[Rfam]
RNA sequence: CCGACCGAUACAUGUCGAAGCAUGACCUCUCCUGAGGUAGUCUGCGAGGUAGAGCUACCGAUUGGACGACCCGCCGUCGAGAGACGUCGGCCGUCCUGUCGAACUCCGAACUUGCAGACGCCGUGGACGGAGGGAGUCGGUGCGCGGGGUAAGCCUGCGUACCACGAGGGAGACAACCCAGUGCAGGGUUAAGGUCCCAAAGUGCAGACUAAGUGCGAUCGAAGGUGGUCUCGAGCCCUAGACAGCCGGGAGGUGAGCUUAGAAGCAGCUACCCUCCAAGAAAAGCGUAACAGCUUACCGGCCGAGGUUCGAGGCGCCCAAAAUGAUCGGGGCUCAAGUCUGCCACCGAUACCCUGCUGUGCCGGUGACACGGCAACCAUGCAGGUCGGCGCUCUGAUUGGGUGGAAGUGCGGACGAGAGUUCGUGUGGACCGAUCAGUGACGAAAAU
Numbered sequence: 001c002c003g004a005c006c007g008a009u010a011c012a013u014g015u016c017g018a019a020g021c022a023u024g025a026c027c028u029c030u031c032c033u034g035a036g037g038u039a040g041u042c043u044g045c046g047a048g049g050u051a052g053a054g055c056u057a058c059c060g061a062u063u064g065g066a067c068g069a070c071c072c073g074c075c076g077u078c079g080a081g082a083g084a085c086g087u088c089g090g091c092c093g094u095c096c097u098g099u100c101g102a103a104c105u106c107c108g109a110a111c112u113u114g115c116a117g118a119c120g121c122c123g124u125g126g127a128c129g130g131a132g133g134g135a136g137u138c139g140g141u142g143c144g145c146g147g148g149g150u151a152a153g154c155c156u157g158c159g160u161a162c163c164a165c166g167a168g169g170g171a172g173a174c175a176a177c178c179c180a181g182u183g184c185a186g187g188g189u190u191a192a193g194g195u196c197c198c199a200a201a202g203u204g205c206a207g208a209c210u211a212a213g214u215g216c217g218a219u220c221g222a223a224g225g226u227g228g229u230c231u232c233g234a235g236c237c238c239u240a241g242a243c244a245g246c247c248g249g250g251a252g253g254u255g256a257g258c259u260u261a262g263a264a265g266c267a268g269c270u271a272c273c274c275u276c277c278a279a280g281a282a283a284a285g286c287g288u289a290a291c292a293g294c295u296u297a298c299c300g301g302c303c304g305a306g307g308u309u310c311g312a313g314g315c316g317c318c319c320a321a322a323a324u325g326a327u328c329g330g331g332g333c334u335c336a337a338g339u340c341u342g343c344c345a346c347c348g349a350u351a352c353c354c355u356g357c358u359g360u361g362c363c364g365g366u367g368a369c370a371c372g373g374c375a376a377c378c379a380u381g382c383a384g385g386u387c388g389g390c391g392c393u394c395u396g397a398u399u400g401g402g403u404g405g406a407a408g409u410g411c412g413g414a415c416g417a418g419a420g421u422u423c424g425u426g427u428g429g430a431c432c433g434a435u436c437a438g439u440g441a442c443g444a445a446a447a448u
Stems, first nucleotide, its partner, number of pairs: 001389006011024005026136001027134006036122003040119008052107001053105002060100003064096005073088001075086004139163009168179003183357007193347003202344001204343006224318003228315010245302005251275003256270003276280001281296001285294002358379002360375005390443001392440001394438008408427008

Rfam assigns this 448-nucleotide part of an RNA from uncultured archaeon A07HR60 to the family "Archaeal large subunit ribosomal RNA". The base pairs follow the family's consensus structure, which is taken from published work.